[Rfam]
RNA sequence: GACCCGUUCCCCGAGCAGUCUCCGUAUGGUGUGCGCGCCCUGAAGGGCUAGGGGGCGGGUCGCUU
Numbered sequence: 001g002a003c004c005c006g007u008u009c010c011c012c013g014a015g016c017a018g019u020c021u022c023c024g025u026a027u028g029g030u031g032u033g034c035g036c037g038c039c040c041u042g043a044a045g046g047g048c049u050a051g052g053g054g055g056c057g058g059g060u061c062g063c064u065u
Stems, first nucleotide, its partner, number of pairs: 001061008010053003018034002020031001022029002037048004
DUF3800-IX RNA: a 65-nucleotide RNA sequence from Leifsonia xyli. Pairs were carried over by alignment from the consensus structure, which is taken from published work. About the family: Actinobacteria, Firmicutes (1 example), Nitrospirae, Proteobacteria, Verrucomicrobia (1 example). Rfam classes the family as a small RNA.